[Rfam]
Nucleotides: 066
Base pairs, nucleotide, nucleotide: 001018002017003016004015006014007013008012027044028043029042030041031040032039
Number, partner (000 for none) and nucleotide at each position: 001018g002017g003016g004015g005000a006014c007013c008012u009000u010000c011000g012008g013007g014006g015004c016003c017002c018001u019000a020000a021000a022000c023000a024000c025000c026000a027044g028043u029042g030041g031040c032039c033000c034000u035000u036000c037000g038000g039032g040031g041030u042029u043028g044027c045000c046000g047000a048000a049000g050000c051000a052000a053000a054000c055000g056000g057000a058000a059000g060000a061000c062000a063000g064000a065000a066000a
Shown here is a 66-nucleotide RNA, a member of the family "L2-Alphaproteobacteria ribosomal protein leader". It is one of the family's seed sequences. By type it is a cis-regulatory leader.